[Rfam]
RNA sequence: GUGGCUUCAAAUAUUGAUUUUAUUAAUGCUUGCAUGUUUUUGAUAUAAUGUGUUUGCUUGCAAUGUUUAAAUGAAGCCUAUAAUUGUGUUCCCCUCGCUAUCCACUACUGCAAUUCUAAUGCUGUAAUUGGACGUCGGGGAACCAAUUUU
Numbered sequence: 001g002u003g004g005c006u007u008c009a010a011a012u013a014u015u016g017a018u019u020u021u022a023u024u025a026a027u028g029c030u031u032g033c034a035u036g037u038u039u040u041u042g043a044u045a046u047a048a049u050g051u052g053u054u055u056g057c058u059u060g061c062a063a064u065g066u067u068u069a070a071a072u073g074a075a076g077c078c079u080a081u082a083a084u085u086g087u088g089u090u091c092c093c094c095u096c097g098c099u100a101u102c103c104a105c106u107a108c109u110g111c112a113a114u115u116c117u118a119a120u121g122c123u124g125u126a127a128u129u130g131g132a133c134g135u136c137g138g139g140g141a142a143c144c145a146a147u148u149u150u
Stems, first nucleotide, its partner, number of pairs: 001081002003078003008073002012069002017066002020063002028061002032057003039052001088143007096134002101132004110122003
RNA: Small nucleolar RNA snoR136